[Rfam]
RNA: chrB-b RNA
RNA sequence: UCGGGGCCAGGCAGAUCCCCGAUGGCUACCCGCCAAGACGGUGUCCCGUCCAAAUCUGC
Numbered sequence: 001u002c003g004g005g006g007c008c009a010g011g012c013a014g015a016u017c018c019c020c021g022a023u024g025g026c027u028a029c030c031c032g033c034c035a036a037g038a039c040g041g042u043g044u045c046c047c048g049u050c051c052a053a054a055u056c057u058g059c
Stems, first nucleotide, its partner, number of pairs: 001022006011059005037050005